The record is a 73-nucleotide sequence from Sphingomonas sp. Leaf357, which matches "chrB-a RNA" in Rfam. The organism belongs to Sphingomonas, within Bacteria. Rfam 15.1 lists 347 matches to the family in 339 species.

[Rfam]
RNA sequence: GGAAUGGGGAUACGAGUUCCCCAUGAGGCGACGGCCGAAGCAUCGUGUCCACCAUCAUCCCGGACGCAUCAUG
Numbered sequence: 001g002g003a004a005u006g007g008g009g010a011u012a013c014g015a016g017u018u019c020c021c022c023a024u025g026a027g028g029c030g031a032c033g034g035c036c037g038a039a040g041c042a043u044c045g046u047g048u049c050c051a052c053c054a055u056c057a058u059c060c061c062g063g064a065c066g067c068a069u070c071a072u073g
Base pairs, nucleotide, nucleotide: 005023006022007021008020009019010018045067046066047065048064049063050062